[Rfam]
Shown here is a 184-nucleotide RNA from Clostridium neonatale, a member of the family "Lysine riboswitch aptamer". The organism belongs to Clostridium, within Bacteria.
RNA sequence: CUGUGAGGUAGAGGCGCAGAAUCCAACAGUCUUUAGCAGAGCUAGAGAGAGCAAUGAAGCUAUGGAGAAGGGGAUUUUGCCGAAGUUUGCAAUAUAUCUCAGUGUUGCUUGCUGGGUCUGUAGUUAAGAGCUGCAGGACUGUCUUAAUAAACUCCCCAGUUUAUUAAGUUGUGCUAUCUCAAUU
Numbered sequence: 001c002u003g004u005g006a007g008g009u010a011g012a013g014g015c016g017c018a019g020a021a022u023c024c025a026a027c028a029g030u031c032u033u034u035a036g037c038a039g040a041g042c043u044a045g046a047g048a049g050a051g052c053a054a055u056g057a058a059g060c061u062a063u064g065g066a067g068a069a070g071g072g073g074a075u076u077u078u079g080c081c082g083a084a085g086u087u088u089g090c091a092a093u094a095u096a097u098c099u100c101a102g103u104g105u106u107g108c109u110u111g112c113u114g115g116g117u118c119u120g121u122a123g124u125u126a127a128g129a130g131c132u133g134c135a136g137g138a139c140u141g142u143c144u145u146a147a148u149a150a151a152c153u154c155c156c157c158a159g160u161u162u163a164u165u166a167a168g169u170u171g172u173g174c175u176a177u178c179u180c181a182a183u184u
Base pairs, nucleotide, nucleotide: 006179007178008177009176010175011174016080017079018078019077020076021075022074023073024072031065032064034062035061036060037059084113085112086111089108090107091106092105093104094103095102114140115139117137118136119135120134121133122132123131124130143168144167145166146165147164148163149162150161151160